[Rfam]
RNA sequence: AACCGCAUAGGGUUCUGACCCCGUAUAAAGCCGGGAAUAUGGCUCGGCUGUCUCUACCGGACGACCUUAAAUCGUCCUGGCUACGAGGUCGGUCUUGCGCACG
Numbered sequence: 001a002a003c004c005g006c007a008u009a010g011g012g013u014u015c016u017g018a019c020c021c022c023g024u025a026u027a028a029a030g031c032c033g034g035g036a037a038u039a040u041g042g043c044u045c046g047g048c049u050g051u052c053u054c055u056a057c058c059g060g061a062c063g064a065c066c067u068u069a070a071a072u073c074g075u076c077c078u079g080g081c082u083a084c085g086a087g088g089u090c091g092g093u094c095u096u097g098c099g100c101a102c103g
Stems, first nucleotide, its partner, number of pairs: 018089003022085004029049007058079001059077006